[Rfam]
RNA sequence: AGAUUUUGAUGAGGCGCAUCAAUCAUGAGUAAACUUUAGAUAAUUUGUCUGCUAACAAUUAUAGAGUUAAAAGGGUGAGAUGCCGAAAUGAUUCAUAAUAGCAGUUAUGAAUCGUUGGACUUAAUGGUUAAGAGCUAUAAGUUUGUCAUUAUUAUUAAAUAAUGGAGUGCAUCACUUGUA
Numbered sequence: 001a002g003a004u005u006u007u008g009a010u011g012a013g014g015c016g017c018a019u020c021a022a023u024c025a026u027g028a029g030u031a032a033a034c035u036u037u038a039g040a041u042a043a044u045u046u047g048u049c050u051g052c053u054a055a056c057a058a059u060u061a062u063a064g065a066g067u068u069a070a071a072a073g074g075g076u077g078a079g080a081u082g083c084c085g086a087a088a089u090g091a092u093u094c095a096u097a098a099u100a101g102c103a104g105u106u107a108u109g110a111a112u113c114g115u116u117g118g119a120c121u122u123a124a125u126g127g128u129u130a131a132g133a134g135c136u137a138u139a140a141g142u143u144u145g146u147c148a149u150u151a152u153u154a155u156u157a158a159a160u161a162a163u164g165g166a167g168u169g170c171a172u173c174a175c176u177u178g179u180a
Base pairs, nucleotide, nucleotide: 007174008173009172010171011170016083017082018081019080020079024075032068033067034066035065036064037063038062087116088115089114090113091112092111093110094109095108096107097106098105117144118143119142120141121140122139123138125137126136127135128134146165147164148163149162150161151160152159